[Rfam]
RNA sequence: GUGUAUCCAAUAAAAAUCGAAUCUAUAAAUUCACCAAUUAUGAGUUGGACGCUUUAACCAUUCAACCAUAAAUGC
Numbered sequence: 001g002u003g004u005a006u007c008c009a010a011u012a013a014a015a016a017u018c019g020a021a022u023c024u025a026u027a028a029a030u031u032c033a034c035c036a037a038u039u040a041u042g043a044g045u046u047g048g049a050c051g052c053u054u055u056a057a058c059c060a061u062u063c064a065a066c067c068a069u070a071a072a073u074g075c
Stems, first nucleotide, its partner, number of pairs: 003075004010026003014022001040069003044066006051059001
Plastid-ycf2 5UTR RNA: a 75-nucleotide RNA sequence from Populus deltoides. The family has 204 seed sequences and 3,521 matches in Rfam 15.1. The family's RNA type in Rfam is cis-regulatory element.